[Rfam]
RNA sequence: AUUCCCAUUAUACUACCACUUCUUCUACUUCCAGAUCAAGUGGCUAUGCUUGUGGGAUAAAGAAAAACUUGCCACGGUCUGAAGGAAAAGGUUGAUUGUAUCUUUUUCCUAUAUGAAGUUGGCAAAACAUCUUUUA
Numbered sequence: 001a002u003u004c005c006c007a008u009u010a011u012a013c014u015a016c017c018a019c020u021u022c023u024u025c026u027a028c029u030u031c032c033a034g035a036u037c038a039a040g041u042g043g044c045u046a047u048g049c050u051u052g053u054g055g056g057a058u059a060a061a062g063a064a065a066a067a068c069u070u071g072c073c074a075c076g077g078u079c080u081g082a083a084g085g086a087a088a089a090g091g092u093u094g095a096u097u098g099u100a101u102c103u104u105u106u107u108c109c110u111a112u113a114u115g116a117a118g119u120u121g122g123c124a125a126a127a128c129a130u131c132u133u134u135u136a
Stems, first nucleotide, its partner, number of pairs: 004056004016043004071123004089110003

Small nucleolar RNA SNORA29: a 136-nucleotide RNA sequence from Ceyx cyanopectus.
Rfam's curators write: ACA29 is a member of the H/ACA class of snoRNA that guide the sites of modification of uridines to pseudouridines.
The base pairs follow the family's consensus structure, which was predicted with PFOLD.
By type it is an H/ACA-box small nucleolar RNA.
NCBI's taxonomy places the organism under Eukaryota, Sarcopterygii, Dipnotetrapodomorpha, Archelosauria, Ceyx.